[Rfam]
Small nucleolar RNA U2-19: an 80-nucleotide RNA from Molossus molossus.
The family's consensus secondary structure is taken from published work.
A search with the family's covariance model found it, with a score of 98 bits.
Lineage of the source: Eukaryota > Chordata > Amniota > Laurasiatheria > Molossus.
RNA sequence: AACUUCUGAUGAAAAUAGCCAAAUCUGAGCAUCAGAAGACCUUCCUGUCUACCUGAUGCAUGAUCUCUAUAGUUCUGAGA
Numbered sequence: 001a002a003c004u005u006c007u008g009a010u011g012a013a014a015a016u017a018g019c020c021a022a023a024u025c026u027g028a029g030c031a032u033c034a035g036a037a038g039a040c041c042u043u044c045c046u047g048u049c050u051a052c053c054u055g056a057u058g059c060a061u062g063a064u065c066u067c068u069a070u071a072g073u074u075c076u077g078a079g080a
Base pairs, nucleotide, nucleotide: 029059030058031057032056033055037050038049039048040047